Notes:
This 81-nucleotide RNA belongs to the Rfam family "pemK RNA". The family's RNA type in Rfam is cis-regulatory element.
RNA sequence: UUAAAGAUACUCCUGUCUAGCCACAGUCUAAAGCAAUGGAGACAGUUCGGAGAGAACCUCGGAAAGGUGAAAUUCCUGUGA
Number, nucleotide and partner (000 for none) at each position: 001u000002u000003a000004a000005a000006g000007a000008u000009a000010c000011u000012c078013c045014u044015g043016u042017c041018u040019a000020g000021c000022c000023a000024c000025a000026g000027u000028c000029u000030a000031a000032a000033g000034c000035a000036a000037u000038g000039g000040a018041g017042a016043c015044a014045g013046u064047u063048c062049g000050g060051a059052g058053a000054g000055a000056a000057c000058c052059u051060c050061g000062g048063a047064a046065a077066g076067g075068u000069g000070a000071a000072a000073u000074u000075c067076c066077u065078g012079u000080g000081a000